[Rfam]
RNA: mir-981 microRNA precursor family
RNA sequence: GUGCUCAGUCUGCGGGUUUCGUUCUCUGCGAACAUUCACGACAAUCUAUGUUGUUCGUUGUCGACGAAACCUGAAAAUUGUGCAU
Numbered sequence: 001g002u003g004c005u006c007a008g009u010c011u012g013c014g015g016g017u018u019u020c021g022u023u024c025u026c027u028g029c030g031a032a033c034a035u036u037c038a039c040g041a042c043a044a045u046c047u048a049u050g051u052u053g054u055u056c057g058u059u060g061u062c063g064a065c066g067a068a069a070c071c072u073g074a075a076a077a078u079u080g081u082g083c084a085u
Stems, first nucleotide, its partner, number of pairs: 001085004006080001013073009030056005